[Rfam]
A member of the RNA family "Small nucleolar RNA Z107/R87" from Triticum aestivum, 105 nucleotides long.
Its family is annotated with RNA processing and nucleolus in the Gene Ontology.
The base pairs follow the family's consensus structure, which was predicted with RNAfold.
A search with the family's covariance model found it, with a score of 103 bits.
Rfam classes the family as a C/D-box small nucleolar RNA.
The literature on the family includes a 2001 paper in J Mol Biol by Barneche et al., "Identification of 66 box C/D snoRNAs in Arabidopsis thaliana: extensive gene duplications generated multiple isoforms predicting new ribosomal RNA 2'-O-methylation sites".

RNA sequence: GAUGGCAGUGAGGAUAUGCAAAUAUUCAAGCUCAACAGACCAAAUCACAGGUCGUCUCUUUUGAGAUUGAUUUGUAUGCCGAUUAUCCCACUGAACCGAGCCAUC
Numbered sequence: 001g002a003u004g005g006c007a008g009u010g011a012g013g014a015u016a017u018g019c020a021a022a023u024a025u026u027c028a029a030g031c032u033c034a035a036c037a038g039a040c041c042a043a044a045u046c047a048c049a050g051g052u053c054g055u056c057u058c059u060u061u062u063g064a065g066a067u068u069g070a071u072u073u074g075u076a077u078g079c080c081g082a083u084u085a086u087c088c089c090a091c092u093g094a095a096c097c098g099a100g101c102c103a104u105c
Stems, first nucleotide, its partner, number of pairs: 001105006